[Rfam]
RNA: msiK RNA
RNA sequence: UGAUACCCCCACUACCUAGGACCGUCCGGCACGUUCCUGCCGGGUGAGGGGCGCGACU
Dot-bracket structure: ........((..(((..........((((((......)))))))))..))........